[Rfam]
RNA sequence: CGGGCCGGCCAGACGGUCGCGUCAUCCUGCUUCGGCAGGGUGCCGAGGAACGUCCGGGCACCACAGGGCAGGGCGGUGGGUAACACCCACCCGGAGUGAUCCGCGAGAAAGUGCAACAGAGAGCAGACCGCCUGCUUGACCGAACCUUUCGAGGGGCGUGCAAGUCGGUAAGGGUGAAACGGUGGUGUAAGAGACCACCAGGGGCCCGAGUGAUCGGGCUCGCUGGGUAAACCUCGUCCGGUGCAAGGUCAGACAGGGAACGCUUGACGGGGCCCCCCGAGUUCCCGGGUAGACCGCUAGAGGGCUGCGGCAACGUAGUCCCGAGAGAGAUGGCCGUCACCCUGCUGCAAAGCAGGGGACAGAACCCGGCGUAUCGGCCGACCCGUUUG
Numbered sequence: 001c002g003g004g005c006c007g008g009c010c011a012g013a014c015g016g017u018c019g020c021g022u023c024a025u026c027c028u029g030c031u032u033c034g035g036c037a038g039g040g041u042g043c044c045g046a047g048g049a050a051c052g053u054c055c056g057g058g059c060a061c062c063a064c065a066g067g068g069c070a071g072g073g074c075g076g077u078g079g080g081u082a083a084c085a086c087c088c089a090c091c092c093g094g095a096g097u098g099a100u101c102c103g104c105g106a107g108a109a110a111g112u113g114c115a116a117c118a119g120a121g122a123g124c125a126g127a128c129c130g131c132c133u134g135c136u137u138g139a140c141c142g143a144a145c146c147u148u149u150c151g152a153g154g155g156g157c158g159u160g161c162a163a164g165u166c167g168g169u170a171a172g173g174g175u176g177a178a179a180c181g182g183u184g185g186u187g188u189a190a191g192a193g194a195c196c197a198c199c200a201g202g203g204g205c206c207c208g209a210g211u212g213a214u215c216g217g218g219c220u221c222g223c224u225g226g227g228u229a230a231a232c233c234u235c236g237u238c239c240g241g242u243g244c245a246a247g248g249u250c251a252g253a254c255a256g257g258g259a260a261c262g263c264u265u266g267a268c269g270g271g272g273c274c275c276c277c278c279g280a281g282u283u284c285c286c287g288g289g290u291a292g293a294c295c296g297c298u299a300g301a302g303g304g305c306u307g308c309g310g311c312a313a314c315g316u317a318g319u320c321c322c323g324a325g326a327g328a329g330a331u332g333g334c335c336g337u338c339a340c341c342c343u344g345c346u347g348c349a350a351a352g353c354a355g356g357g358g359a360c361a362g363a364a365c366c367c368g369g370c371g372u373a374u375c376g377g378c379c380g381a382c383c384c385g386u387u388u389g
Stems, first nucleotide, its partner, number of pairs: 001385004006380005011374001012338007020045002023042006050372003054369005059243004066274002071239005076090005091105001092103004106234002111232002113228002128173002130169003134165005181199006201223001202221008247295004256286006268279004302321008
The family of this 389-nucleotide RNA sequence from Pseudolysinimonas yzui is "Bacterial RNase P class A". Rfam's curators write: Ribonuclease P (RNase P) is a ubiquitous endoribonuclease, found in archaea, bacteria and eukarya as well as chloroplasts and mitochondria.